[Rfam]
This 97-nucleotide RNA from Dorea formicigenerans belongs to the Rfam family "skipping-rope RNA".
It is annotated as a small RNA.
It scores 38 bits against the family's covariance model.
The source organism's lineage runs through Bacteria, Bacillota, Lachnospiraceae, Dorea and Dorea formicigenerans.
The family's consensus secondary structure is taken from published work.
RNA sequence: AUUACUUGAGGUGGAGGAAUUCGUACCCGUCCACACGCCGAGAGCUUGACAGGGGAAACCCGAGAGACGCAGGAGAAUGGUACGCCUGCCAAGUAGC
Number, nucleotide and partner (000 for none) at each position: 001a000002u096003u095004a094005c093006u092007u091008g090009a000010g000011g034012u033013g032014g031015a030016g000017g000018a000019a000020u000021u000022c000023g000024u000025a000026c000027c080028c079029g000030u015031c014032c013033a012034c011035a000036c064037g000038c054039c053040g000041a000042g000043a000044g000045c000046u000047u000048g000049a000050c000051a000052g000053g039054g038055g000056a000057a000058a000059c000060c000061c000062g000063a000064g036065a000066g000067a000068c000069g089070c088071a087072g086073g085074a000075g000076a000077a000078u000079g028080g027081u000082a000083c000084g000085c073086c072087u071088g070089c069090c008091a007092a006093g005094u004095a003096g002097c000